[Rfam]
RNA: Betaproteobacteria toxic small RNA
Organism: Oryzisolibacter propanilivorax
RNA sequence: UGUCUCCUCCAUCUCCUCAAAGGAUGGAUUGGCCCCGGGCCUUACCGCCCGGGGCUUUUUUU
Numbered sequence: 001u002g003u004c005u006c007c008u009c010c011a012u013c014u015c016c017u018c019a020a021a022g023g024a025u026g027g028a029u030u031g032g033c034c035c036c037g038g039g040c041c042u043u044a045c046c047g048c049c050c051g052g053g054g055c056u057u058u059u060u061u062u
Stems, first nucleotide, its partner, number of pairs: 008028006032055008